[Rfam]
The record is a 205-nucleotide RNA from Pacificispira spongiicola, which matches "Manganese Mn2+ riboswitch aptamer (yybP-ykoY)" in Rfam.

RNA sequence: ACCCCCGUCACUUGGGGAGUAGCCGACCGUUCCCAUCCCAGUGCGGAUCAUGGAACGGGCCUUCGCGUCAACAUACUCGGUCCUCAGACCGUGGUGCGAAGGGAGCGAUCGGACAGAUCGUUCGGGCGAGACCGAUGACAUCGGCUUUCCGCACCGGCUGGGCGGGGGAGACGAUGUCGUUGGAUCGUUCGAAACACGAUCGUUC
Number, nucleotide and partner (000 for none) at each position: 001a000002c000003c000004c000005c000006c000007g000008u000009c000010a000011c000012u000013u000014g000015g000016g000017g000018a000019g000020u000021a000022g000023c000024c000025g000026a000027c058028c057029g056030u055031u054032c053033c052034c000035a000036u000037c000038c000039c000040a000041g000042u000043g000044c000045g000046g000047a000048u000049c000050a000051u000052g033053g032054a031055a030056c029057g028058g027059g000060c000061c101062u100063u099064c098065g097066c096067g095068u094069c093070a092071a000072c000073a000074u000075a000076c000077u000078c091079g090080g089081u088082c087083c000084u000085c000086a000087g082088a081089c080090c079091g078092u070093g069094g068095u067096g066097c065098g064099a063100a062101g061102g000103g205104a204105g203106c202107g201108a200109u199110c198111g197112g000113a000114c000115a000116g000117a000118u000119c000120g000121u000122u000123c000124g000125g000126g000127c000128g000129a000130g000131a000132c000133c000134g000135a000136u000137g000138a000139c000140a000141u000142c000143g000144g000145c000146u000147u000148u000149c000150c000151g000152c000153a000154c000155c000156g000157g000158c000159u000160g000161g000162g000163c000164g000165g000166g000167g000168g000169a000170g000171a000172c000173g000174a000175u000176g000177u000178c000179g000180u000181u000182g000183g000184a000185u000186c000187g000188u000189u000190c000191g000192a000193a000194a000195c000196a000197c111198g110199a109200u108201c107202g106203u105204u104205c103